[Rfam]
The family of this 251-nucleotide part of an RNA from Spirosoma linguale is "Bacterial large subunit ribosomal RNA". On this family, see Cannone et al., BMC Bioinformatics 2002: "The comparative RNA web (CRW) site: an online database of comparative sequence and structure information for ribosomal, intron, and other RNAs". NCBI's taxonomy places the organism under Bacteria, Pseudomonadati, Cytophagia, Cytophagaceae, Spirosoma linguale.
RNA sequence: GGAAUACUGACGGGAUCUGUCCUUAGUACGAGAGGACCGGGAUGGACUCACCGCUGGCGGAUCGGUUGUUUGGCCGCAGGCACGGCCGAGUAGCUACGUGGGGAACAGAUAAGCGCUGAAAGCAUCUAAGUGCGAAACUGGCCUGAAGAUGAGUGUUCCGGUAUAAAGGGGUGUUGUAGACGACGACGUUGAUAGGCGGCAGGUGGAGGUGGUGAGAGCCAUAAAGCCGAGCCGUACUAAUGACCCCGGAA
Numbered sequence: 001g002g003a004a005u006a007c008u009g010a011c012g013g014g015a016u017c018u019g020u021c022c023u024u025a026g027u028a029c030g031a032g033a034g035g036a037c038c039g040g041g042a043u044g045g046a047c048u049c050a051c052c053g054c055u056g057g058c059g060g061a062u063c064g065g066u067u068g069u070u071u072g073g074c075c076g077c078a079g080g081c082a083c084g085g086c087c088g089a090g091u092a093g094c095u096a097c098g099u100g101g102g103g104a105a106c107a108g109a110u111a112a113g114c115g116c117u118g119a120a121a122g123c124a125u126c127u128a129a130g131u132g133c134g135a136a137a138c139u140g141g142c143c144u145g146a147a148g149a150u151g152a153g154u155g156u157u158c159c160g161g162u163a164u165a166a167a168g169g170g171g172u173g174u175u176g177u178a179g180a181c182g183a184c185g186a187c188g189u190u191g192a193u194a195g196g197c198g199g200c201a202g203g204u205g206g207a208g209g210u211g212g213u214g215a216g217a218g219c220c221a222u223a224a225a226g227c228c229g230a231g232c233c234g235u236a237c238u239a240a241u242g243a244c245c246c247c248g249g250a251a
Stems, first nucleotide, its partner, number of pairs: 001159008011145004017045007047102005055096003062089005067082006106140003113133005168246003172188005193239003196235005202228002209222005